The record is a 194-nucleotide sequence from Apis mellifera, which matches "U2 spliceosomal RNA" in Rfam. Taxonomically the source falls in Apis (Eukaryota, Altocrustacea, Neoptera, Apini). The family's consensus secondary structure is taken from published work. Rfam's curators put it in the seed alignment. Rfam's curators write: U2 is a small nuclear RNA (snRNA) component of the spliceosome (involved in pre-mRNA splicing). Complementary binding between U2 snRNA (in an area lying towards the 5' end but 3' to hairpin I) and the branchpoint sequence (BPS) of the intron results the bulging out of an unpaired adenosine, on the BPS, which initiates a nucleophilic attack at the intronic 5' splice site, thus starting the first of two transesterification reactions that mediate splicing. Rfam classes the family as a spliceosomal small nuclear RNA.
[Rfam]
Nucleotides: 194
Base pairs, nucleotide, nucleotide: 007026008025009024011022012021013020014019048067049066050065051064052063053062069084070083071082072081073080074079114146115145116144117143118142119141120140121139126137127136128135129134149187150186151185152184153183154182156178157177158176159175160174161173
Number, partner (000 for none) and nucleotide at each position: 001000a002000u003000c004000g005000c006000u007026u008025c009024u010000c011022g012021g013020c014019c015000u016000u017000u018000u019014g020013g021012c022011u023000a024009a025008g026007a027000u028000c029000a030000a031000a032000g033000u034000g035000u036000a037000g038000u039000a040000u041000c042000u043000g044000u045000u046000c047000u048067u049066a050065u051064c052063a053062g054000c055000u056000u057000a058000a059000u060000a061000u062053c063052u064051g065050a066049u067048a068000u069084a070083c071082u072081c073080u074079c075000u076000a077000g078000u079074g080073a081072g082071a083070g084069u085000u086000a087000a088000a089000a090000a091000u092000a093000u094000u095000a096000u097000a098000c099000u100000g101000a102000u103000u104000u105000u106000u107000g108000a109000a110000a111000c112000g113000u114146g115145g116144u117143g118142g119141a120140a121139g122000u123000u124000u125000u126137a127136g128135a129134g130000c131000u132000u133000g134129c135128u136127c137126u138000a139121c140120u141119u142118c143117u144116a145115c146114c147000g148000u149187g150186a151185g152184u153183c154182g155000g156178c157177a158176u159175g160174a161173c162000a163000u164000u165000g166000c167000a168000g169000a170000u171000u172000u173161g174160u175159c176158g177157u178156g179000u180000u181000u182154c183153g184152g185151c186150u187149c188000a189000a190000u191000a192000u193000u194000a